[Rfam]
RNA sequence: GCCAAAAUGUUGCUUUUAUCUGCAUUUGCACCUGCACUUGUGCUCGUUCAUGUUUCUUCCUUCCUUGAAAAACCCUAAAGCCAAAGCUUCAGAGAAUGGAAAAGGUUUUAGAUAUAUGAGAACAAAAAUGACAAGAGGAAAGGAAUAAGGGAAGAGAAGGAAAAUGGAAAUCAGAAGGAAGAGCAGGAACAAGCAAGAGGUGCAGGUGCCAGUGCAGGUGAAUGCCAUUUUGGU
Number, nucleotide and partner (000 for none) at each position: 001g234002c233003c232004a231005a230006a229007a228008u227009g226010u000011u000012g225013c224014u000015u222016u221017u220018a219019u218020c217021u216022g215023c214024a213025u212026u211027u000028g209029c208030a207031c206032c205033u204034g203035c202036a201037c200038u199039u198040g000041u000042g000043c000044u000045c000046g000047u000048u000049c000050a000051u000052g000053u000054u000055u000056c000057u000058u000059c000060c000061u000062u144063c143064c142065u141066u140067g000068a000069a000070a000071a000072a000073c000074c000075c000076u000077a000078a000079a000080g000081c000082c000083a000084a000085a000086g000087c000088u000089u000090c000091a000092g000093a000094g000095a000096a000097u000098g000099g000100a000101a000102a000103a000104g000105g000106u000107u000108u000109u000110a000111g000112a000113u000114a000115u000116a000117u000118g000119a000120g000121a000122a000123c000124a000125a000126a000127a000128a000129u000130g000131a000132c000133a000134a000135g000136a000137g000138g000139a000140a066141a065142g064143g063144a062145a000146u000147a000148a000149g000150g000151g000152a000153a000154g000155a000156g000157a000158a000159g000160g000161a000162a000163a000164a000165u000166g000167g000168a000169a000170a000171u000172c000173a000174g000175a000176a000177g000178g000179a000180a000181g000182a000183g000184c000185a000186g000187g000188a000189a000190c000191a000192a000193g000194c000195a000196a000197g000198a039199g038200g037201u036202g035203c034204a033205g032206g031207u030208g029209c028210c000211a026212g025213u024214g023215c022216a021217g020218g019219u018220g017221a016222a015223u000224g013225c012226c009227a008228u007229u006230u005231u004232g003233g002234u001

Background:
MIR530 microRNA precursor family: a 234-nucleotide sequence from Malus domestica. It scores 96 bits against the family's covariance model. For this family Rfam cites "Stress-responsive microRNAs in Populus" (Lu et al., Plant J, 2008).